[Rfam]
RNA sequence: GUAUAGUAAUGCGUUAAGGAUUGAUGCGGCAUCCUUUUUUAUUUUUCUUAAAAAAGAUAUAGCGGAAAGCCUGACCAAGA
Numbered sequence: 001g002u003a004u005a006g007u008a009a010u011g012c013g014u015u016a017a018g019g020a021u022u023g024a025u026g027c028g029g030c031a032u033c034c035u036u037u038u039u040u041a042u043u044u045u046u047c048u049u050a051a052a053a054a055a056g057a058u059a060u061a062g063c064g065g066a067a068a069g070c071c072u073g074a075c076c077a078a079g080a
Base pairs, nucleotide, nucleotide: 017072018071019070021068022067026063027062031058032057033056037053038052039051040050041049
RNA: Flavo-1 RNA
Organism: Lacinutrix sp. 5H-3-7-4